[Rfam]
RNA sequence: UCAUUCAGAUUCGCCAUCAUACGCCCAACCGUGCAUUUGAAAUGCAUAUAUAUGCAUCACGAGCCACGGUAGGGCUGUAUGAUGGCGAUACCGAUUGG
Numbered sequence: 001u002c003a004u005u006c007a008g009a010u011u012c013g014c015c016a017u018c019a020u021a022c023g024c025c026c027a028a029c030c031g032u033g034c035a036u037u038u039g040a041a042a043u044g045c046a047u048a049u050a051u052a053u054g055c056a057u058c059a060c061g062a063g064c065c066a067c068g069g070u071a072g073g074g075c076u077g078u079a080u081g082a083u084g085g086c087g088a089u090a091c092c093g094a095u096u097g098g
Stems, first nucleotide, its partner, number of pairs: 002097002005094002008091001011088012023075004028070006036063004042057006
A member of the RNA family "MIR9666 microRNA precursor family" from Triticum aestivum, 98 nucleotides long. The family's consensus secondary structure was predicted with RNAalifold. NCBI's taxonomy places the organism under Eukaryota, Embryophyta, Poales, Triticodae, Triticum. The family has 3 seed sequences and 481 matches in Rfam 15.1.